[Rfam]
RNA: Small nucleolar RNA SNORA53
Organism: Coregonus sp. 'balchen'
RNA sequence: AACACGCUCCUUAGAUCCACCUCUGGAGGGUUCUCCUGUGCUGGUGCUGUCGUCUCUCUCUGCGUGCUGCAGCUCCAGCCUGGAGGCCCUCAGCAGCUUUCUGGCUGGACAGUUGGAGGUGCUUGAGUCAUUGGUGUGUGAGAGCAGUCUACCUGCCCCCCCCAGCCCCCCUGCUGCACUGGCAACCCUCAGUCCUGCUGGGGGGGACUCUACCAGCGCAGCUAGGAUGGGGGGCGGACAAC
Number, nucleotide and partner (000 for none) at each position: 001a000002a139003c138004a137005c136006g135007c134008u133009c000010c127011u126012u125013a124014g123015a000016u000017c000018c121019a120020c119021c118022u117023c116024u115025g114026g091027a090028g089029g088030g087031u000032u000033c000034u084035c083036c082037u000038g000039u000040g079041c078042u077043g076044g075045u000046g073047c072048u071049g070050u000051c000052g067053u000054c066055u000056c064057u000058c000059u000060c000061u000062g000063c000064g056065u000066g054067c052068u000069g000070c049071a048072g047073c046074u000075c044076c043077a042078g041079c040080c000081u000082g036083g035084a034085g000086g000087c030088c029089c028090u027091c026092a000093g000094c107095a106096g105097c104098u103099u000100u000101c000102u000103g098104g097105c096106u095107g094108g000109a000110c000111a000112g000113u000114u025115g024116g023117a022118g021119g020120u019121g018122c000123u014124u013125g012126a011127g010128u000129c000130a000131u000132u000133g008134g007135u006136g005137u004138g003139u002140g000141a000142g000143a000144g000145c000146a000147g000148u000149c000150u000151a000152c000153c237154u236155g235156c234157c233158c000159c000160c230161c000162c000163c000164a000165g228166c000167c226168c225169c000170c000171c000172u000173g000174c000175u220176g219177c218178a000179c216180u215181g214182g213183c000184a000185a000186c000187c206188c000189u201190c200191a199192g000193u000194c000195c000196u000197g000198c000199u191200g190201g189202g000203g000204g000205g000206g187207a000208c000209u000210c000211u000212a000213c182214c181215a180216g179217c000218g177219c176220a175221g000222c000223u000224a000225g168226g167227a000228u165229g000230g160231g000232g000233g157234g156235c155236g154237g153238a000239c000240a000241a000242c000